[Rfam]
Nucleotides: 123
Stems, first nucleotide, its partner, number of pairs: 001123038040084006
Number, partner (000 for none) and nucleotide at each position: 001123c002122g003121a004120a005119u006118a007117u008116a009115a010114g011113a012112g013111a014110c015109g016108u017107c018106u019105u020104u021103u022102a023101g024100c025099u026098u027097u028096u029095a030094a031093c032092u033091a034090a035089a036088a037087a038086a039000a040084c041083u042082a043081a044080a045079a046000a047000a048000u049000g050000u051000c052000u053000c054000c055000u056000a057000a058000a059000u060000a061000a062000g063000a064000g065000a066000u067000a068000u069000a070000a071000a072000a073000u074000a075000u076000a077000u078000c079045u080044u081043u082042u083041a084040g085000u086038u087037u088036u089035u090034u091033u092032a093031g094030u095029u096028a097027a098026a099025a100024g101023c102022u103021a104020a105019g106018a107017g108016a109015c110014g111013u112012c113011u114010c115009u116008u117007a118006u119005a120004u121003u122002c123001g